[Rfam]
RNA sequence: CUCUGGAGAGCCCGCAUUUGCGGCACCGAAGGAGUAAGCCUUUUUUUGGUAAAAGGCGAAUCUCUCAGGUCUAUGUACAGAG
Numbered sequence: 001c002u003c004u005g006g007a008g009a010g011c012c013c014g015c016a017u018u019u020g021c022g023g024c025a026c027c028g029a030a031g032g033a034g035u036a037a038g039c040c041u042u043u044u045u046u047u048g049g050u051a052a053a054a055g056g057c058g059a060a061u062c063u064c065u066c067a068g069g070u071c072u073a074u075g076u077a078c079a080g081a082g
Stems, first nucleotide, its partner, number of pairs: 001082005012023004025070003028066002032064003038057006
RNA: Glycine riboswitch aptamer
Organism: Natranaerobius trueperi